[Rfam]
RNA sequence: GGAUGCAUUACUGGGCAAUUACACCUUGGGCAGUUGGCCGGCCACUCACCCUAGCUAGCCGGCCUGCAACGUGAUUAAUUUCACUAGGCGGCCGGCCGGAGAUUGAUUAGUUCACUGCCAAAGGUGAUUUGCCCGGCAAUUCUGCU
Dot-bracket structure: ....(.(((.((((((((...((((...((((((.(((.......................................................................))).))))))...))))..)))))))).))).)....
mir-399 microRNA precursor family: a 146-nucleotide RNA from Juglans regia. Rfam's curators write: mir-399 was identified in both Arabidopsis thaliana and Oryza sativa computationally and was later experimentally verified. mir-399 is thought to target mRNAs coding for a phosphatase transporter. The mature sequence is excised from the 3' arm of the hairpin.